M-box riboswitch aptamer (ykoK leader): a 155-nucleotide RNA from Thomasclavelia ramosa.
Rfam describes the family as follows. M-box riboswitch, also know as ykoK leader is described as a metaloregulatory RNA that sense divalent metals and function as a genetic control element of genes related to divalent metal transport in bacteria. It was first reported upstream of the B.subtilis ykoK gene and genes with related functions in other bacteria.
Taxonomically the source falls in Thomasclavelia ramosa (Bacteria, Bacillati, Bacillota, Thomasclavelia).
For this family Rfam cites "New RNA motifs suggest an expanded scope for riboswitches in bacterial genetic control" (Barrick et al., Proc Natl Acad Sci U S A, 2004).
The family has 159 seed sequences and 1,095 matches in Rfam 15.1.

[Rfam]
RNA sequence: UAAAAGAAUCGGUAGGUGAGACUACCAUAGGGAUACGGGUUGCUACCGCAAAGCAGUGGAGACACUGUGCGCUGGUCAACAGUUCUUGUCGUGAAGGCAAAAACUAAUGCAAUUACAUGGCCCUAUGAUGUUGAAGCUUGAACGAGAUAAAGUUA
Number, nucleotide and partner (000 for none) at each position: 001u000002a000003a000004a000005a000006g000007a000008a148009u147010c146011g143012g000013u095014a000015g138016g137017u136018g000019a000020g132021a131022c130023u000024a000025c000026c127027a126028u125029a124030g123031g122032g121033a000034u000035a000036c000037g000038g000039g113040u112041u111042g110043c109044u000045a000046c074047c000048g072049c071050a000051a000052a000053g000054c000055a066056g000057u064058g063059g000060a000061g000062a000063c058064a057065c000066u055067g000068u000069g000070c000071g049072c048073u000074g046075g000076u000077c000078a000079a000080c000081a000082g104083u103084u102085c000086u000087u000088g098089u097090c096091g000092u000093g000094a000095a013096g090097g089098c088099a000100a000101a000102a084103a083104c082105u000106a000107a000108u000109g043110c042111a041112a040113u039114u000115a000116c000117a000118u000119g000120g000121c032122c031123c030124u029125a028126u027127g026128a000129u000130g022131u021132u020133g000134a000135a000136g017137c016138u015139u000140g000141a000142a000143c011144g000145a000146g010147a009148u008149a000150a000151a000152g000153u000154u000155a000